[Rfam]
The record is a 35-nucleotide sequence, which matches "DUF805b RNA" in Rfam.
Nucleotides: 035
Base pairs, nucleotide, nucleotide: 002021003020004019005018010034011033
Number, partner (000 for none) and nucleotide at each position: 001000a002021a003020g004019g005018a006000g007000g008000a009000u010034g011033c012000c013000g014000a015000a016000a017000a018005u019004c020003c021002u022000g023000a024000a025000g026000a027000g028000a029000g030000u031000a032000a033011g034010c035000g